Rfam assigns this 129-nucleotide RNA sequence from Papio anubis to the family "Small nucleolar RNA SNORA11". It scores 76 bits against the family's covariance model. U107 (SNORA11) is a member of the H/ACA class of snoRNAs that guide the sites of modification of uridines to pseudouridines. This snoRNA was identified by RT-PCR from blood cells and its expression confirmed by Northern blot analysis. There is no predicted target for this guide snRNA. The base pairs follow the family's consensus structure, which was predicted with RNAalifold. By type it is an H/ACA-box small nucleolar RNA.

[Rfam]
RNA sequence: AGGGUUUGCUUAGAGCAGGGCGGUUGAAGAGUGGCUCCUCUGUUUACAAUACAUCAAACAGGAAUCUGGGGUCAUUGUGACAAGGGGCACAAAACUUGUGUCCUCCCUACAUGUGGAAAAAAAAAAAAA
Numbered sequence: 001a002g003g004g005u006u007u008g009c010u011u012a013g014a015g016c017a018g019g020g021c022g023g024u025u026g027a028a029g030a031g032u033g034g035c036u037c038c039u040c041u042g043u044u045u046a047c048a049a050u051a052c053a054u055c056a057a058a059c060a061g062g063a064a065u066c067u068g069g070g071g072u073c074a075u076u077g078u079g080a081c082a083a084g085g086g087g088c089a090c091a092a093a094a095c096u097u098g099u100g101u102c103c104u105c106c107c108u109a110c111a112u113g114u115g116g117a118a119a120a121a122a123a124a125a126a127a128a129a
Base pairs, nucleotide, nucleotide: 003055004054005053007051008050013045014044015043016042017041018040019039020038022035024033072119076115077114078113084104085103086102088100089099090098091097092096